[Rfam]
RNA sequence: UAUAUUUGCAGCUUCGAUGAAAUCAUCAUUGAUACACAUAAAAAUUAUUUAAAUAAUAUUGGCAUG
Number, nucleotide and partner (000 for none) at each position: 001u000002a000003u000004a000005u000006u000007u000008g000009c000010a000011g000012c000013u000014u032015c031016g030017a029018u028019g027020a000021a000022a000023u000024c000025a000026u000027c019028a018029u017030u016031g015032a014033u000034a000035c000036a000037c000038a000039u000040a000041a000042a000043a000044a000045u000046u000047a000048u000049u000050u000051a000052a000053a000054u000055a000056a000057u000058a000059u000060u000061g000062g000063c000064a000065u000066g000

Source information:
The record is a 66-nucleotide RNA from Polaribacter aquimarinus, which matches "S15-Flavobacteria ribosomal protein leader" in Rfam. It scores 71 bits against the family's covariance model. The family's consensus secondary structure is taken from published work. It is annotated as a cis-regulatory leader. Its Rfam clan is "Ribosomal Protein S15 Leader clan".